[Rfam]
The record is a 560-nucleotide part of an RNA from Paraburkholderia saeva, which matches "Bacterial small subunit ribosomal RNA" in Rfam. For this family Rfam cites "The comparative RNA web (CRW) site: an online database of comparative sequence and structure information for ribosomal, intron, and other RNAs" (Cannone et al., BMC Bioinformatics, 2002). The match comes from Rfam's covariance-model search (1551 bits). Clan: SSU clan.
RNA sequence: GAACUGAAGAGUUUGAUCCUGGCUCAGAUUGAACGCUGGCGGCAUGCCUUACACAUGCAAGUCGGACGGCAGCACGGGAGCAAUCCUGGUGGCGAGUGGCGAACGGGUGAGUAAUACAUCGGAACGUGUCCUGGAGUGGGGGAUAGCCCGGCGAAAGCCGGAUUAAUACCGCAUACGCUCUACGGAGGAAAGGGGGGGAUCUUAGGACCUCUCGCUCAAGGGGCGGCCGAUGGCAGAUUAGCUAGUUGGUGGGGUAAAGGCCUACCAAGGCGACGAUCUGUAGCUGGUCUGAGAGGACGACCAGCCACACUGGGACUGAGACACGGCCCAGACUCCUACGGGAGGCAGCAGUGGGGAAUUUUGGACAAUGGGCGCAAGCCUGAUCCAGCAAUGCCGCGUGUGUGAAGAAGGCCUUCGGGUUGUAAAGCACUUUUGUCCGGAAAGAAAACCUCUGCCCUAAUACGGCGGGGGGAUGACGGUACCGGAAGAAUAAGCACCGGCUAACUACGUGCCAGCAGCCGCGGUAAUACGUAGGGUGCAAGCGUUAAUCGGAAUUACUG
Numbered sequence: 001g002a003a004c005u006g007a008a009g010a011g012u013u014u015g016a017u018c019c020u021g022g023c024u025c026a027g028a029u030u031g032a033a034c035g036c037u038g039g040c041g042g043c044a045u046g047c048c049u050u051a052c053a054c055a056u057g058c059a060a061g062u063c064g065g066a067c068g069g070c071a072g073c074a075c076g077g078g079a080g081c082a083a084u085c086c087u088g089g090u091g092g093c094g095a096g097u098g099g100c101g102a103a104c105g106g107g108u109g110a111g112u113a114a115u116a117c118a119u120c121g122g123a124a125c126g127u128g129u130c131c132u133g134g135a136g137u138g139g140g141g142g143a144u145a146g147c148c149c150g151g152c153g154a155a156a157g158c159c160g161g162a163u164u165a166a167u168a169c170c171g172c173a174u175a176c177g178c179u180c181u182a183c184g185g186a187g188g189a190a191a192g193g194g195g196g197g198g199a200u201c202u203u204a205g206g207a208c209c210u211c212u213c214g215c216u217c218a219a220g221g222g223g224c225g226g227c228c229g230a231u232g233g234c235a236g237a238u239u240a241g242c243u244a245g246u247u248g249g250u251g252g253g254g255u256a257a258a259g260g261c262c263u264a265c266c267a268a269g270g271c272g273a274c275g276a277u278c279u280g281u282a283g284c285u286g287g288u289c290u291g292a293g294a295g296g297a298c299g300a301c302c303a304g305c306c307a308c309a310c311u312g313g314g315a316c317u318g319a320g321a322c323a324c325g326g327c328c329c330a331g332a333c334u335c336c337u338a339c340g341g342g343a344g345g346c347a348g349c350a351g352u353g354g355g356g357a358a359u360u361u362u363g364g365a366c367a368a369u370g371g372g373c374g375c376a377a378g379c380c381u382g383a384u385c386c387a388g389c390a391a392u393g394c395c396g397c398g399u400g401u402g403u404g405a406a407g408a409a410g411g412c413c414u415u416c417g418g419g420u421u422g423u424a425a426a427g428c429a430c431u432u433u434u435g436u437c438c439g440g441a442a443a444g445a446a447a448a449c450c451u452c453u454g455c456c457c458u459a460a461u462a463c464g465g466c467g468g469g470g471g472g473a474u475g476a477c478g479g480u481a482c483c484g485g486a487a488g489a490a491u492a493a494g495c496a497c498c499g500g501c502u503a504a505c506u507a508c509g510u511g512c513c514a515g516c517a518g519c520c521g522c523g524g525u526a527a528u529a530c531g532u533a534g535g536g537u538g539c540a541a542g543c544g545u546u547a548a549u550c551g552g553a554a555u556u557a558c559u560g
Stems, first nucleotide, its partner, number of pairs: 009025005027550004032546006039397006045390002047355001052353003056350003061100003066097002069093002075088005107308003117232006125225002130221003134217003138172001140170002146163001148161005178187003192213006234280003241271003246268008283305004287298004310331005333344004361387001363386003369382005400430004410421004436486005444477001450471003494539005505534005515522002